S. pyogenes small RNA Spy490380c: a 96-nucleotide RNA from Streptococcus ictaluri. Pairs were carried over by alignment from the consensus structure, which was predicted with RNAfold.
RNA sequence: AUAAUUAACUAUACUUAAUUAAAUACAUAACAUAUCUUAAGGAGAUAAGUGAUGAGAAAGAAACUAAGCCUGAUUCUUGGGGCUAUUUUAUCAGUC
Numbered sequence: 001a002u003a004a005u006u007a008a009c010u011a012u013a014c015u016u017a018a019u020u021a022a023a024u025a026c027a028u029a030a031c032a033u034a035u036c037u038u039a040a041g042g043a044g045a046u047a048a049g050u051g052a053u054g055a056g057a058a059a060g061a062a063a064c065u066a067a068g069c070c071u072g073a074u075u076c077u078u079g080g081g082g083c084u085a086u087u088u089u090a091u092c093a094g095u096c
Stems, first nucleotide, its partner, number of pairs: 002021007035057005060092002067084003070080004
Dot-bracket structure: .(((((((......))))))).............(((((.............)))))..((.....(((((((...)))).)))......))....
The literature on the family includes a 2012 paper in BMC Genomics by Patenge et al., "Identification of novel growth phase- and media-dependent small non-coding RNAs in Streptococcus pyogenes M49 using intergenic tiling arrays". Taxonomically the source falls in Streptococcus ictaluri (Bacteria, Bacillota, Bacilli, Streptococcaceae).